[Rfam]
RNA sequence: CAUGAGCCACACACCGUUUUUCUUCGUAUUCUUUUUUACCUUCCCCUGAUUGGGAGGCGAUUCGUCAUAUUGAAAGAAUACGAAGACGAACCAGAAAGCCUCCUGAACAGGGGGCUAAUGAGAU
Numbered sequence: 001c002a003u004g005a006g007c008c009a010c011a012c013a014c015c016g017u018u019u020u021u022c023u024u025c026g027u028a029u030u031c032u033u034u035u036u037u038a039c040c041u042u043c044c045c046c047u048g049a050u051u052g053g054g055a056g057g058c059g060a061u062u063c064g065u066c067a068u069a070u071u072g073a074a075a076g077a078a079u080a081c082g083a084a085g086a087c088g089a090a091c092c093a094g095a096a097a098g099c100c101u102c103c104u105g106a107a108c109a110g111g112g113g114g115c116u117a118a119u120g121a122g123a124u
Stems, first nucleotide, its partner, number of pairs: 016091004021086014038070001042055004056066004097116008